[Rfam]
RNA: caulobacter sRNA CC2171
RNA sequence: CAACAGCGAAAGGAGGUGAUCCAGUGUCUCAUUGUCAUACCCUACGGUCCCCGGUUGCCGUGACCUGGAUCUUGGCCUCUGCCGAGAUUGGUGCGUAACGCACGUUUAGGGCGGCUCUUUGCGGGCCGUGGAACCGACAAUGGAAAGGCCGCCCUCGAGGGCGGCCUU
Numbered sequence: 001c002a003a004c005a006g007c008g009a010a011a012g013g014a015g016g017u018g019a020u021c022c023a024g025u026g027u028c029u030c031a032u033u034g035u036c037a038u039a040c041c042c043u044a045c046g047g048u049c050c051c052c053g054g055u056u057g058c059c060g061u062g063a064c065c066u067g068g069a070u071c072u073u074g075g076c077c078u079c080u081g082c083c084g085a086g087a088u089u090g091g092u093g094c095g096u097a098a099c100g101c102a103c104g105u106u107u108a109g110g111g112c113g114g115c116u117c118u119u120u121g122c123g124g125g126c127c128g129u130g131g132a133a134c135c136g137a138c139a140a141u142g143g144a145a146a147g148g149c150c151g152c153c154c155u156c157g158a159g160g161g162c163g164g165c166c167u168u
Stems, first nucleotide, its partner, number of pairs: 015022002030142007043074002046071005077111003083104002088098003116132003120128001145168010